Rfam assigns this 82-nucleotide sequence from Cucurbita maxima to the family "mir-156 microRNA precursor family".
The match comes from Rfam's covariance-model search (69 bits).
The organism belongs to Cucurbita, within Eukaryota.
From the family's description: This family represents the plant microRNA (miRNA) precursor mir-156.
RNA sequence: GUGACAGAAGAGAGGGAGCACACAUAGUUCUUUCGAGAGAGACUAUGCUUGAAGCUCUGUGUGCUCUCUAUCUCUCUGUCAC
Numbered sequence: 001g002u003g004a005c006a007g008a009a010g011a012g013a014g015g016g017a018g019c020a021c022a023c024a025u026a027g028u029u030c031u032u033u034c035g036a037g038a039g040a041g042a043c044u045a046u047g048c049u050u051g052a053a054g055c056u057c058u059g060u061g062u063g064c065u066c067u068c069u070a071u072c073u074c075u076c077u078g079u080c081a082c
Stems, first nucleotide, its partner, number of pairs: 001082008010072002013069009023059002